[Rfam]
RNA sequence: GUAGAGGAGAUGGCGCAGGGGACAUGGGCUAAGUCUUGGGGGUUUCUGGCACCUUCAGACAUGUGUCCUCUUCUCCCUCCUCCAGG
Numbered sequence: 001g002u003a004g005a006g007g008a009g010a011u012g013g014c015g016c017a018g019g020g021g022a023c024a025u026g027g028g029c030u031a032a033g034u035c036u037u038g039g040g041g042g043u044u045u046c047u048g049g050c051a052c053c054u055u056c057a058g059a060c061a062u063g064u065g066u067c068c069u070c071u072u073c074u075c076c077c078u079c080c081u082c083c084a085g086g
Base pairs, nucleotide, nucleotide: 004082005081006080007079008078009077012076013075015073017071018070019069020068021067022066023065024064025063026062028060036058037057038056039055040054041053042052044049
RNA: mir-877 microRNA precursor family
Organism: Neomonachus schauinslandi